[Rfam]
RNA sequence: AGCACUGUAUGGUAUCUGCAGCCUGCCGCUACUCUGGCUGGACUGUUCAGUACUCAGUGCAAGAGCAACUCGCCAUAUGGCAUCGUUGGUCUCCAUGCCUCUUUGUGGCUGCAGUCCUGGUAUAUCUGUUGAGACAUUU
Numbered sequence: 001a002g003c004a005c006u007g008u009a010u011g012g013u014a015u016c017u018g019c020a021g022c023c024u025g026c027c028g029c030u031a032c033u034c035u036g037g038c039u040g041g042a043c044u045g046u047u048c049a050g051u052a053c054u055c056a057g058u059g060c061a062a063g064a065g066c067a068a069c070u071c072g073c074c075a076u077a078u079g080g081c082a083u084c085g086u087u088g089g090u091c092u093c094c095a096u097g098c099c100u101c102u103u104u105g106u107g108g109c110u111g112c113a114g115u116c117c118u119g120g121u122a123u124a125u126c127u128g129u130u131g132a133g134a135c136a137u138u139u
Stems, first nucleotide, its partner, number of pairs: 002060006014054001018046004023041001025038004064127002068123001070120003079109001081107003
Rfam assigns this 139-nucleotide RNA sequence from Coregonus sp. 'balchen' to the family "Small nucleolar RNA SNORA8". It scores 46 bits against the family's covariance model. It is annotated as an H/ACA-box small nucleolar RNA. ACA8 is a member of the H/ACA class of snoRNA that guide the sites of modification of uridines to pseudouridines. Clan: SNORA8 clan.